[Rfam]
RNA: Small nucleolar RNA SNORA49
RNA sequence: CCUCCCCUUCCUUACUCCAGCCGCUCUGUCCCCAGUAGUGUGGUCUGGCAUUGACAGGGGAUACAGCACUCUGGCACUCUCACCUCUUAUUUAGGAAACUCAUCUUACAUAGGGCGUGUGAGGGAGCUGACAAU
Numbered sequence: 001c002c003u004c005c006c007c008u009u010c011c012u013u014a015c016u017c018c019a020g021c022c023g024c025u026c027u028g029u030c031c032c033c034a035g036u037a038g039u040g041u042g043g044u045c046u047g048g049c050a051u052u053g054a055c056a057g058g059g060g061a062u063a064c065a066g067c068a069c070u071c072u073g074g075c076a077c078u079c080u081c082a083c084c085u086c087u088u089a090u091u092u093a094g095g096a097a098a099c100u101c102a103u104c105u106u107a108c109a110u111a112g113g114g115c116g117u118g119u120g121a122g123g124g125a126g127c128u129g130a131c132a133a134u
Base pairs, nucleotide, nucleotide: 003061004060005059006058007057008056011053017048018047019046020045022043023041024040026038027037073128074127075126077124078123086113087112088111089110090109091107093106094105095104096103